[Rfam]
RNA sequence: CAAGCGAAGCGCGCGUAUUCCAAAUCUGUUUAAAAAACGACCAGUCGCGACUGGACUGAAUCGGAUACUGAUCAAUACUUCAACUGUCGGCGUGACAUCUCCCCCAAGUGAAGCGCUGACCUGGGUACCAACGGACCGCGUGCCCUUGUUUUACUCCUAAUGGUCUUAGCCCGGAUUCGCCCCCCCAGAACCCGG
Numbered sequence: 001c002a003a004g005c006g007a008a009g010c011g012c013g014c015g016u017a018u019u020c021c022a023a024a025u026c027u028g029u030u031u032a033a034a035a036a037a038c039g040a041c042c043a044g045u046c047g048c049g050a051c052u053g054g055a056c057u058g059a060a061u062c063g064g065a066u067a068c069u070g071a072u073c074a075a076u077a078c079u080u081c082a083a084c085u086g087u088c089g090g091c092g093u094g095a096c097a098u099c100u101c102c103c104c105c106a107a108g109u110g111a112a113g114c115g116c117u118g119a120c121c122u123g124g125g126u127a128c129c130a131a132c133g134g135a136c137c138g139c140g141u142g143c144c145c146u147u148g149u150u151u152u153a154c155u156c157c158u159a160a161u162g163g164u165c166u167u168a169g170c171c172c173g174g175a176u177u178c179g180c181c182c183c184c185c186c187a188g189a190a191c192c193c194g195g
Stems, first nucleotide, its partner, number of pairs: 039165005086120004091115002096110003123145006129138001171195004176190003
Notes:
The record is a 195-nucleotide sequence from Pseudomonas fluorescens, which matches "RgsA sRNA" in Rfam. Rfam's curators write: This small RNA (sRNA) was computationally identified in the genome of the opportunistic pathogen Pseudomonas aeruginosa and its expression verified by northern blot analysis. P16 sRNA appears to be conserved across several Pseudomonas species and Azotobacter vinelandii. Gene Ontology terms of the family: response to hydrogen peroxide, sRNA-mediated gene silencing and response to oxidative stress. The family's RNA type in Rfam is small RNA.